[Rfam]
Nucleotides: 115
Base pairs, nucleotide, nucleotide: 003078004077008074009073010072011071012070015067016066017103018102019101020100052063053062054061055060092110093109094108095107096106
Number, partner (000 for none) and nucleotide at each position: 001000u002000g003078u004077g005000a006000c007000g008074g009073u010072c011071g012070c013000g014000a015067c016066u017103g018102g019101c020100g021000c022000a023000g024000c025000c026000c027000c028000g029000u030000g031000g032000g033000u034000c035000c036000a037000c038000a039000g040000g041000c042000a043000c044000c045000g046000g047000g048000g049000c050000g051000g052063g053062u054061g055060g056000g057000u058000c059000a060055c061054c062053a063052c064000c065000a066016g067015g068000g069000a070012g071011c072010g073009a074008c075000a076000a077004c078003g079000c080000u081000g082000u083000g084000c085000a086000g087000a088000c089000g090000a091000c092110g093109g094108g095107u096106c097000g098000a099000a100020c101019g102018c103017c104000u105000g106096g107095g108094c109093c110092c111000g112000g113000g114000g115000u

This 115-nucleotide RNA sequence from Xylanimonas protaetiae belongs to the Rfam family "ZMP/ZTP riboswitch aptamer (pfl RNA motif)".
NCBI's taxonomy places the organism under Bacteria, Actinomycetota, Micrococcales, Promicromonosporaceae, Xylanimonas.